[Rfam]
About this RNA:
This 126-nucleotide sequence from Alkaliphilus peptidifermentans belongs to the Rfam family "FMN riboswitch aptamer (RFN element)". The match comes from Rfam's covariance-model search (124 bits). The base pairs follow the family's consensus structure, which is taken from published work. The literature on the family includes a 2020 paper in J Struct Biol X by Wilt et al., "FMN riboswitch aptamer symmetry facilitates conformational switching through mutually exclusive coaxial stacking configurations". Taxonomically the source falls in Alkaliphilus peptidifermentans (Bacteria, Clostridia, Peptostreptococcales, Natronincolaceae).
RNA sequence: UAAAACCUUCAGGGCGGGGCGAAAUUCCCCACCGGCGGUAACGCAUUAUGCGAAGCCCGCGAGCCUUAUGGCUGAUCUGGUGCAACUCCAGAGCCGACAGUAUAGUCUGGAUGGAAGAAGGAAUUG
Numbered sequence: 001u002a003a004a005a006c007c008u009u010c011a012g013g014g015c016g017g018g019g020c021g022a023a024a025u026u027c028c029c030c031a032c033c034g035g036c037g038g039u040a041a042c043g044c045a046u047u048a049u050g051c052g053a054a055g056c057c058c059g060c061g062a063g064c065c066u067u068a069u070g071g072c073u074g075a076u077c078u079g080g081u082g083c084a085a086c087u088c089c090a091g092a093g094c095c096g097a098c099a100g101u102a103u104a105g106u107c108u109g110g111a112u113g114g115a116a117g118a119a120g121g122a123a124u125u126g
Stems, first nucleotide, its partner, number of pairs: 003124001006121005017029003031106002033096002035060004055094002063072003076092005098109003